[Rfam]
RNA: PyrR binding site
Organism: Lottiidibacillus patelloidae
RNA sequence: UCAUCCUUUAAAAAAGUUCAGAGAAGCUUUCAAGGGUGUUUUUUAAGAGGGAGUUUAGGCGACCCUCUACUUUUCUACACCCUUCCAUAUCGGAGGGGUGUUUUUUAU
Numbered sequence: 001u002c003a004u005c006c007u008u009u010a011a012a013a014a015a016g017u018u019c020a021g022a023g024a025a026g027c028u029u030u031c032a033a034g035g036g037u038g039u040u041u042u043u044u045a046a047g048a049g050g051g052a053g054u055u056u057a058g059g060c061g062a063c064c065c066u067c068u069a070c071u072u073u074u075c076u077a078c079a080c081c082c083u084u085c086c087a088u089a090u091c092g093g094a095g096g097g098g099u100g101u102u103u104u105u106u107a108u
Stems, first nucleotide, its partner, number of pairs: 003037006013030006045072003049064002053060002077101010